[Rfam]
RNA: HDV ribozyme from F. prausnitzii
Organism: Chionoecetes opilio
RNA sequence: CCUGCUUCAAAAUCCUGCUACCACCUCCCCGUGGUAAGCAGGGGGCAACAGAUGAUAACGUCUGGCUAACGGAAGA
Numbered sequence: 001c002c003u004g005c006u007u008c009a010a011a012a013u014c015c016u017g018c019u020a021c022c023a024c025c026u027c028c029c030c031g032u033g034g035u036a037a038g039c040a041g042g043g044g045g046c047a048a049c050a051g052a053u054g055a056u057a058a059c060g061u062c063u064g065g066c067u068a069a070c071g072g073a074a075g076a
Stems, first nucleotide, its partner, number of pairs: 001042007023035003049064005